[Rfam]
RNA: rpsB sRNA
RNA sequence: CACACACGGACUUUGGUGUCUGCCGGGAGAAAUCCGGCCGAAACCUCCGGUGGCAUCGAGGAUCAUCCGAGAUGCCGGACGUCCGUGGAGGCUAACCGGAAAGGAAAAUA
Numbered sequence: 001c002a003c004a005c006a007c008g009g010a011c012u013u014u015g016g017u018g019u020c021u022g023c024c025g026g027g028a029g030a031a032a033u034c035c036g037g038c039c040g041a042a043a044c045c046u047c048c049g050g051u052g053g054c055a056u057c058g059a060g061g062a063u064c065a066u067c068c069g070a071g072a073u074g075c076c077g078g079a080c081g082u083c084c085g086u087g088g089a090g091g092c093u094a095a096c097c098g099g100a101a102a103g104g105a106a107a108a109u110a
Base pairs, nucleotide, nucleotide: 001090003088005087006086007085008084009083010082011081015045016044023037024036026035052076053075054074055073056072057071